[Rfam]
RNA sequence: UAUAAAUACAGAUGGUAGUGUGCUGUACUGUGUACAACAAGGGAAUGAAUUAUAUGAUUUAAGCGUAAUGUAAGUACGUCAUCUUGUUGGUCAUCUUUUAGGUGAUUUGUAUUAUA
Number, nucleotide and partner (000 for none) at each position: 001u000002a000003u000004a000005a000006a000007u032008a031009c030010a029011g028012a026013u025014g024015g023016u022017a000018g000019u000020g000021u000022g016023c015024u014025g013026u012027a000028c011029u010030g009031u008032g007033u000034a000035c089036a088037a087038c086039a085040a084041g000042g000043g000044a000045a082046u081047g080048a059049a058050u057051u000052a000053u000054a000055u000056g000057a050058u049059u048060u000061a000062a000063g079064c078065g077066u076067a075068a000069u000070g000071u000072a000073a000074g000075u067076a066077c065078g064079u063080c047081a046082u045083c000084u040085u039086g038087u037088u036089g035090g106091u105092c104093a103094u102095c101096u100097u000098u000099u000100a096101g095102g094103u093104g092105a091106u090107u000108u000109g000110u000111a000112u000113u000114a000115u000116a000